The family of this 56-nucleotide sequence from Teichococcus wenyumeiae is "nhaA-I RNA".
RNA sequence: GGGUGUUCGCGCCGGAAUGGCGCGGGCAGGGUUCAGCGUUGGUCGGGCCGCCAGCG
Numbered sequence: 001g002g003g004u005g006u007u008c009g010c011g012c013c014g015g016a017a018u019g020g021c022g023c024g025g026g027c028a029g030g031g032u033u034c035a036g037c038g039u040u041g042g043u044c045g046g047g048c049c050g051c052c053a054g055c056g
Stems, first nucleotide, its partner, number of pairs: 005027008037056007

Notes
Acidobacteria, Alphaproteobacteria, Betaproteobacteria and Gammaproteobacteria, Verrucomicrobia, cand. division NC10. The family's RNA type in Rfam is riboswitch.